[Rfam]
RNA: mir-153 microRNA precursor family
RNA sequence: UCUUUCAUCAUUUUUGAGAUGUGCAAUUUUACCUCUCCAAUUGCAUAGUCACAAAAGUGAUGGAAGC
Numbered sequence: 001u002c003u004u005u006c007a008u009c010a011u012u013u014u015u016g017a018g019a020u021g022u023g024c025a026a027u028u029u030u031a032c033c034u035c036u037c038c039a040a041u042u043g044c045a046u047a048g049u050c051a052c053a054a055a056a057g058u059g060a061u062g063g064a065a066g067c
Stems, first nucleotide, its partner, number of pairs: 002066005008060009018050003022045007